[Rfam]
RNA sequence: CCGUGCAGCCGGGGCGGUAGCGGUGCCCUAUACCUACAAUCCGCUAUAGAUGGGGUGAUAUUCUGCCUCGGGUCUUAAAUUGUAGAGCUGCCCUUUAUAAGUGGCGAUGACGUUUGGGUCUUACGCAACAGAAAUUUAUGAAUCGUGUCAGGUCAGGAAUGAAGCAGCACUAAGUAAAACCUUCUGUGUGCCGUAAGGGUGCCUGGACUGAGUUAACUGUAGAGGUAACGUCUGUGAUUUGGAUUCAAAGCAGAAUGCACGG
Numbered sequence: 001c002c003g004u005g006c007a008g009c010c011g012g013g014g015c016g017g018u019a020g021c022g023g024u025g026c027c028c029u030a031u032a033c034c035u036a037c038a039a040u041c042c043g044c045u046a047u048a049g050a051u052g053g054g055g056u057g058a059u060a061u062u063c064u065g066c067c068u069c070g071g072g073u074c075u076u077a078a079a080u081u082g083u084a085g086a087g088c089u090g091c092c093c094u095u096u097a098u099a100a101g102u103g104g105c106g107a108u109g110a111c112g113u114u115u116g117g118g119u120c121u122u123a124c125g126c127a128a129c130a131g132a133a134a135u136u137u138a139u140g141a142a143u144c145g146u147g148u149c150a151g152g153u154c155a156g157g158a159a160u161g162a163a164g165c166a167g168c169a170c171u172a173a174g175u176a177a178a179a180c181c182u183u184c185u186g187u188g189u190g191c192c193g194u195a196a197g198g199g200u201g202c203c204u205g206g207a208c209u210g211a212g213u214u215a216a217c218u219g220u221a222g223a224g225g226u227a228a229c230g231u232c233u234g235u236g237a238u239u240u241g242g243a244u245u246c247a248a249a250g251c252a253g254a255a256u257g258c259a260c261g262g
Base pairs, nucleotide, nucleotide: 001262002261003260004259005258006257008056009055010054011029012028013027014026015025016024018022033053034052037049062254063253064252065251066250068248070246071245072244073243074242075241077240078239079238080237081236082235083234084233085232086231089227090226093224094223095222096221097220098219101217102216103214104213105212112208113207114206115205116204117203118202119201120197121196122195123194124193125192126188127187129186130185131184132183133182135178136177137176138175139174145170146169147168148167153162154161155160
The family of this 262-nucleotide sequence from Anaerosacchariphilus polymeriproducens is "Bacterial large signal recognition particle RNA". Its family is annotated with SRP-dependent cotranslational protein targeting to membrane, signal sequence recognition and signal recognition particle, plasma membrane targeting in the Gene Ontology. The family's RNA type in Rfam is non-coding RNA gene. The literature on the family includes a 2009 paper in RNA Biol by Rosenblad et al., "Kinship in the SRP RNA family". The family's consensus secondary structure is taken from published work.